[Rfam]
RNA sequence: UAAGAAGGUGGCCUCUCGUGAUGACCCCCCUCUCCUGAAGCAGAUGGGUUGGUGAUGAUCGAACCCUCUAAGAAGUUGACUGAAGAGGCUGCUUGGCU
Numbered sequence: 001u002a003a004g005a006a007g008g009u010g011g012c013c014u015c016u017c018g019u020g021a022u023g024a025c026c027c028c029c030c031u032c033u034c035c036u037g038a039a040g041c042a043g044a045u046g047g048g049u050u051g052g053u054g055a056u057g058a059u060c061g062a063a064c065c066c067u068c069u070a071a072g073a074a075g076u077u078g079a080c081u082g083a084a085g086a087g088g089c090u091g092c093u094u095g096g097c098u
Base pairs, nucleotide, nucleotide: 007093008092009091010090011089012088013087014086015085
Dot-bracket structure: ......(((((((((.....................................................................))))))))).....